[Rfam]
This 117-nucleotide RNA sequence from Cuscuta europaea belongs to the Rfam family "Small nucleolar RNA Z278". The base pairs follow the family's consensus structure, which was predicted with PFOLD. It scores 41 bits against the family's covariance model.
RNA sequence: GCCAGUGAUGAUUCAAUCCAAUUUCAUGAGAUGUAGUUUUUCAAGGACCCUGUUAUGCAGGGAGAACCCCCUUCGUGAAGCUACAUUCCAUAGGAUCAUAAUAGAUUAACCUGAGGC
Numbered sequence: 001g002c003c004a005g006u007g008a009u010g011a012u013u014c015a016a017u018c019c020a021a022u023u024u025c026a027u028g029a030g031a032u033g034u035a036g037u038u039u040u041u042c043a044a045g046g047a048c049c050c051u052g053u054u055a056u057g058c059a060g061g062g063a064g065a066a067c068c069c070c071c072u073u074c075g076u077g078a079a080g081c082u083a084c085a086u087u088c089c090a091u092a093g094g095a096u097c098a099u100a101a102u103a104g105a106u107u108a109a110c111c112u113g114a115g116g117c
Base pairs, nucleotide, nucleotide: 001117002116003115048062049061050060051059052058